[Rfam]
RNA sequence: AGUCUUUCGAAUCAGUGCCGAGAUUUCACCUGACACCAGAUCAUCAGCAUCGAUGGAACUCCCAAGAUAAGUGAAGCU
Number, nucleotide and partner (000 for none) at each position: 001a000002g077003u076004c000005u074006u073007u000008c071009g000010a000011a068012u067013c066014a000015g000016u064017g063018c000019c000020g061021a060022g059023a000024u058025u057026u056027c055028a054029c000030c052031u000032g000033a000034c000035a000036c000037c000038a000039g000040a000041u000042c000043a000044u000045c000046a000047g000048c000049a000050u000051c000052g030053a000054u028055g027056g026057a025058a024059c022060u021061c020062c000063c017064a016065a000066g013067a012068u011069a000070a000071g008072u000073g006074a005075a000076g003077c002078u000